[Rfam]
RNA: Alphaproteobacterial ar14
Organism: Mesorhizobium sp. NBSH29
RNA sequence: AGAAUUUCGUCAAAGCCUACCUCCUCCCAGGCGAUGACGAAUAUGGUCGGGGCCCACCUCCUCCCGGGCUUCCGACCCCCAUAACGACACCCGCCGGAUCCUCCUCCCCCGACGGGUGUUGUUU
Numbered sequence: 001a002g003a004a005u006u007u008c009g010u011c012a013a014a015g016c017c018u019a020c021c022u023c024c025u026c027c028c029a030g031g032c033g034a035u036g037a038c039g040a041a042u043a044u045g046g047u048c049g050g051g052g053c054c055c056a057c058c059u060c061c062u063c064c065c066g067g068g069c070u071u072c073c074g075a076c077c078c079c080c081a082u083a084a085c086g087a088c089a090c091c092c093g094c095c096g097g098a099u100c101c102u103c104c105u106c107c108c109c110c111g112a113c114g115g116g117u118g119u120u121g122u123u124u
Stems, first nucleotide, its partner, number of pairs: 007040003011036002015032003045077007052069003087119007095111003